Notes: The family of this 64-nucleotide sequence from Acidithiobacillus sulfuriphilus is "Fluoride riboswitch aptamer (crcB RNA motif)". Its family is annotated with response to fluoride and positive regulation of gene expression in the Gene Ontology. The family's consensus secondary structure is taken from published work.
[Rfam]
RNA sequence: UUUCGACAAGGCGAUGGGGUCCGCCUGAUAACCGCCAUUCAUGGCUGAUGACUCCUACCGGGUG
Numbered sequence: 001u002u003u004c005g006a007c008a009a010g011g012c013g014a015u016g017g018g019g020u021c022c023g024c025c026u027g028a029u030a031a032c033c034g035c036c037a038u039u040c041a042u043g044g045c046u047g048a049u050g051a052c053u054c055c056u057a058c059c060g061g062g063u064g
Stems, first nucleotide, its partner, number of pairs: 010025004016055006034045004